RNA sequence: UAAGAAAUCCGGCCUGUUGAUGCUUUUUUUGCAACCGCAGAAAAAGGGUAGGAAAGUCCGGACACCGCAGGGCUGCAUAGCGGAUAACGUCCGCCCGUAGUGAUACGAGGACCAGUGCAACAGAAAGAAUGUACAGUUCGGCUGUAGUGAAACCAGGUAAACUCUAUGUGGUGCAAUGAUAAGUAUAUCGGCAAUUAAGGGCGGCCCGUCCAAUGCCGAGGGGUAAUCAGCUCAAGUUUUGCAGCAAUGUAAAACACAGAUAAAUAACAGGCAUCCCGGCAACGGGAGAACAGAAUCCGGCUUACAGGGUUUCUUAUGUU
Dot-bracket structure: ((((((((((((((((((.((.(((((((((......))))))))).))....[[[.[[[[[((((...[[[[.((((((((((.....)))))(((((....)))).)((...((((.............((((((...))))))..........))..)))))))))))))...((((.......(((((......((((.]]]]))))...)))))......))))......((((((((....))))))))..........))))))).......................]]]]]]]].).))))))))))....
Numbered sequence: 001u002a003a004g005a006a007a008u009c010c011g012g013c014c015u016g017u018u019g020a021u022g023c024u025u026u027u028u029u030u031g032c033a034a035c036c037g038c039a040g041a042a043a044a045a046g047g048g049u050a051g052g053a054a055a056g057u058c059c060g061g062a063c064a065c066c067g068c069a070g071g072g073c074u075g076c077a078u079a080g081c082g083g084a085u086a087a088c089g090u091c092c093g094c095c096c097g098u099a100g101u102g103a104u105a106c107g108a109g110g111a112c113c114a115g116u117g118c119a120a121c122a123g124a125a126a127g128a129a130u131g132u133a134c135a136g137u138u139c140g141g142c143u144g145u146a147g148u149g150a151a152a153c154c155a156g157g158u159a160a161a162c163u164c165u166a167u168g169u170g171g172u173g174c175a176a177u178g179a180u181a182a183g184u185a186u187a188u189c190g191g192c193a194a195u196u197a198a199g200g201g202c203g204g205c206c207c208g209u210c211c212a213a214u215g216c217c218g219a220g221g222g223g224u225a226a227u228c229a230g231c232u233c234a235a236g237u238u239u240u241g242c243a244g245c246a247a248u249g250u251a252a253a254a255c256a257c258a259g260a261u262a263a264a265u266a267a268c269a270g271g272c273a274u275c276c277c278g279g280c281a282a283c284g285g286g287a288g289a290a291c292a293g294a295a296u297c298c299g300g301c302u303u304a305c306a307g308g309g310u311u312u313c314u315u316a317u318g319u320u
Stems, first nucleotide, its partner, number of pairs: 001316010011305001012272007020049002023046009054303003058300005063173004070207004075169005080094005095109001096107004110164002115162002117158002132146006177229004188219005199211004236255008
Shown here is a 320-nucleotide RNA sequence from Chryseobacterium lacus, a member of the family "Bacterial RNase P class A". Rfam links the family to the GO terms ribonuclease P activity, tRNA processing and dimeric ribonuclease P complex. The family is grouped with related families in Rfam's "RNaseP clan". Rfam classes the family as a ribozyme.